Source information
Archaeal large subunit ribosomal RNA: a 432-nucleotide part of an RNA from Tripterygium wilfordii.
RNA sequence: GGUAGUAGCAAAUAUUCAAAUGAGAACUUUGAAGGCCGAAGAGGGGAAAGGUUCCAUGUGAACGGCACUUGCACAUGGGUUAGUCGAUCCUAAGAGACGGGGGAAGCCCGUCCGAUAGCGCCGUGCGCGCGAGCUUCGAAAGGGAAUCGGGUUAAAAUUCCUGAACCGGGACGUGGCGGCUGACGGCAACGUUAGGGAGUCCGGAUACGUCGGCGGGGGCUUCGGAAAGAGUUAUCUUUUCUGUUUAACGGCCUGCCCACCCUGGAAACGGCUCAGCCGGAGGUAGGGUCCAGCGGCCGGAAGAGCACCGCACGUCGCGUGGUGUCCGAUGCGUUCCCGGCGGCCCUUGAAAAUCCGGAGGACCGAGUGCCUCCCACGCCCGGUCGUACUCAUAACCGCAUCAGGUCUCCAAGGUGAACAGCCUCUGGUCAA
Numbered sequence: 001g002g003u004a005g006u007a008g009c010a011a012a013u014a015u016u017c018a019a020a021u022g023a024g025a026a027c028u029u030u031g032a033a034g035g036c037c038g039a040a041g042a043g044g045g046g047a048a049a050g051g052u053u054c055c056a057u058g059u060g061a062a063c064g065g066c067a068c069u070u071g072c073a074c075a076u077g078g079g080u081u082a083g084u085c086g087a088u089c090c091u092a093a094g095a096g097a098c099g100g101g102g103g104a105a106g107c108c109c110g111u112c113c114g115a116u117a118g119c120g121c122c123g124u125g126c127g128c129g130c131g132a133g134c135u136u137c138g139a140a141a142g143g144g145a146a147u148c149g150g151g152u153u154a155a156a157a158u159u160c161c162u163g164a165a166c167c168g169g170g171a172c173g174u175g176g177c178g179g180c181u182g183a184c185g186g187c188a189a190c191g192u193u194a195g196g197g198a199g200u201c202c203g204g205a206u207a208c209g210u211c212g213g214c215g216g217g218g219g220c221u222u223c224g225g226a227a228a229g230a231g232u233u234a235u236c237u238u239u240u241c242u243g244u245u246u247a248a249c250g251g252c253c254u255g256c257c258c259a260c261c262c263u264g265g266a267a268a269c270g271g272c273u274c275a276g277c278c279g280g281a282g283g284u285a286g287g288g289u290c291c292a293g294c295g296g297c298c299g300g301a302a303g304a305g306c307a308c309c310g311c312a313c314g315u316c317g318c319g320u321g322g323u324g325u326c327c328g329a330u331g332c333g334u335u336c337c338c339g340g341c342g343g344c345c346c347u348u349g350a351a352a353a354u355c356c357g358g359a360g361g362a363c364c365g366a367g368u369g370c371c372u373c374c375c376a377c378g379c380c381c382g383g384u385c386g387u388a389c390u391c392a393u394a395a396c397c398g399c400a401u402c403a404g405g406u407c408u409c410c411a412a413g414g415u416g417a418a419c420a421g422c423c424u425c426u427g428g429u430c431a432a
Stems, first nucleotide, its partner, number of pairs: 015033006034430004043410004049390002054078006063071002085386003089143002094137003098133001147164005167382004172378004203356003209344004214339004220331001222329003225245002228242003249299004259289006269279003311319001396405002412424003